[Rfam]
RNA sequence: GGCCAUGCUUUUCCACAGCUUUCUUGAACUUUCUCUGUGUACUUGUUUGCAUGUAUGUAUGAAGCUACCAAAGGUUUAGAUAGAGGACACCAUGGGAGCUCAAGAAAGCUGUGGGAGAAGAUGGCAA
Numbered sequence: 001g002g003c004c005a006u007g008c009u010u011u012u013c014c015a016c017a018g019c020u021u022u023c024u025u026g027a028a029c030u031u032u033c034u035c036u037g038u039g040u041a042c043u044u045g046u047u048u049g050c051a052u053g054u055a056u057g058u059a060u061g062a063a064g065c066u067a068c069c070a071a072a073g074g075u076u077u078a079g080a081u082a083g084a085g086g087a088c089a090c091c092a093u094g095g096g097a098g099c100u101c102a103a104g105a106a107a108g109c110u111g112u113g114g115g116a117g118a119a120g121a122u123g124g125c126a127a
Base pairs, nucleotide, nucleotide: 003124004123005122006121013114014113015112017110018109019108020107021106022105024103025102026101027100029098030097031096032095033094
Overview:
Shown here is a 127-nucleotide RNA from Gossypium davidsonii, a member of the family "MIR396 microRNA precursor family". The family's consensus secondary structure was predicted with WAR. Lineage of the source: Eukaryota > Gunneridae > Pentapetalae > malvids > Gossypium. A reference for the family is Sunkar et al. (2005), "Cloning and characterization of microRNAs from rice", Plant Cell. Its family is annotated with RISC complex and miRNA-mediated post-transcriptional gene silencing in the Gene Ontology. The family has 26 seed sequences and 744 matches in Rfam 15.1.